RNA sequence: AAACGAUAAAGGCAAACUUGCCGAAAGGUGAGGACGCAAAACCGCGGGUCUAAGGCUUCUGUUAAUCAGAAGCUACGAUAGCCGGGUUGUCGCA
Numbered sequence: 001a002a003a004c005g006a007u008a009a010a011g012g013c014a015a016a017c018u019u020g021c022c023g024a025a026a027g028g029u030g031a032g033g034a035c036g037c038a039a040a041a042c043c044g045c046g047g048g049u050c051u052a053a054g055g056c057u058u059c060u061g062u063u064a065a066u067c068a069g070a071a072g073c074u075a076c077g078a079u080a081g082c083c084g085g086g087u088u089g090u091c092g093c094a
Base pairs, nucleotide, nucleotide: 012037013036017032018031019030020029021028022027040088041087042086043085045084046083047082048079049078050077055073056072057071058070059069060068061067
c-di-GMP-I riboswitch aptamer: a 94-nucleotide RNA sequence from Paenibacillus wynnii.
It scores 82 bits against the family's covariance model.